[Rfam]
This 100-nucleotide RNA from Secundilactobacillus collinoides belongs to the Rfam family "23S methyl RNA motif". Gene Ontology term of the family: regulation of gene expression. It scores 59 bits against the family's covariance model. The source organism's lineage runs through Bacteria, Bacillati, Bacilli, Secundilactobacillus and Secundilactobacillus collinoides.
RNA sequence: CGUUCGGGAGUAGAUGUCGAGAAAUCGUCAGCUUCUGUCGAAUUUGCACUUCAUUAACGCAGUUCCUCGCCGUGCUAACACCGAGGGGUUGCGUUUUUUU
Numbered sequence: 001c002g003u004u005c006g007g008g009a010g011u012a013g014a015u016g017u018c019g020a021g022a023a024a025u026c027g028u029c030a031g032c033u034u035c036u037g038u039c040g041a042a043u044u045u046g047c048a049c050u051u052c053a054u055u056a057a058c059g060c061a062g063u064u065c066c067u068c069g070c071c072g073u074g075c076u077a078a079c080a081c082c083g084a085g086g087g088g089u090u091g092c093g094u095u096u097u098u099u100u
Stems, first nucleotide, its partner, number of pairs: 002043006009036002012033002015030002018027002056095014072081003